[Rfam]
RNA sequence: GGCGUAAAGCGUGCGCAGGCGGUUCUGUAAGUGGCUUGUGAAAGCGCCCGGCUAAACCGGGCGAGGACAGGUCAGACUGCAGGGCUGGGAUGGAACAGAGGGCUGUGGAAUUCCGGGUGUAGCGGUGAAAUGUGCAGAGAUCCGGAGGAACACCAGAGGUGAAGACGGCGGCCUGGGUUCCAAUCGACGCUGAGGCACGAAAGCGUGGGGAGCGAACGGGAUUAGAGACCCCGGUAGUCCACGCCGUAAACGAUGCAGACUAGAUGUUCGUGCCGGGAAACCGGGAUGAGCGUCGCAGCUAACGCGCUAAGUCUGCCGCCUGGGGAGUACGGUCGCAAGACUAAAACUCAAAGGAAU
Numbered sequence: 001g002g003c004g005u006a007a008a009g010c011g012u013g014c015g016c017a018g019g020c021g022g023u024u025c026u027g028u029a030a031g032u033g034g035c036u037u038g039u040g041a042a043a044g045c046g047c048c049c050g051g052c053u054a055a056a057c058c059g060g061g062c063g064a065g066g067a068c069a070g071g072u073c074a075g076a077c078u079g080c081a082g083g084g085c086u087g088g089g090a091u092g093g094a095a096c097a098g099a100g101g102g103c104u105g106u107g108g109a110a111u112u113c114c115g116g117g118u119g120u121a122g123c124g125g126u127g128a129a130a131u132g133u134g135c136a137g138a139g140a141u142c143c144g145g146a147g148g149a150a151c152a153c154c155a156g157a158g159g160u161g162a163a164g165a166c167g168g169c170g171g172c173c174u175g176g177g178u179u180c181c182a183a184u185c186g187a188c189g190c191u192g193a194g195g196c197a198c199g200a201a202a203g204c205g206u207g208g209g210g211a212g213c214g215a216a217c218g219g220g221a222u223u224a225g226a227g228a229c230c231c232c233g234g235u236a237g238u239c240c241a242c243g244c245c246g247u248a249a250a251c252g253a254u255g256c257a258g259a260c261u262a263g264a265u266g267u268u269c270g271u272g273c274c275g276g277g278a279a280a281c282c283g284g285g286a287u288g289a290g291c292g293u294c295g296c297a298g299c300u301a302a303c304g305c306g307c308u309a310a311g312u313c314u315g316c317c318g319c320c321u322g323g324g325g326a327g328u329a330c331g332g333u334c335g336c337a338a339g340a341c342u343a344a345a346a347c348u349c350a351a352a353g354g355a356a357u
Base pairs, nucleotide, nucleotide: 001320002319003318009317011198012197013196014195016192018191019190020189022085023084024083025082026081027080028079030078031077032074033073034072035071036070037069038068039067045063046062047061048060049059050058051057089185090184091183092181093180094179095178096177100174101173102172103171104170105169106168107151111147112146113145114144115143116142117141118140122133123132124131159166160165203244204243205242206241207240208239212238213237217233218232219231220230255316256315257314258313259312260311263294264293265292266291267290268289269288270287271286273284274283298305299304322349323348324347331342332341333340334339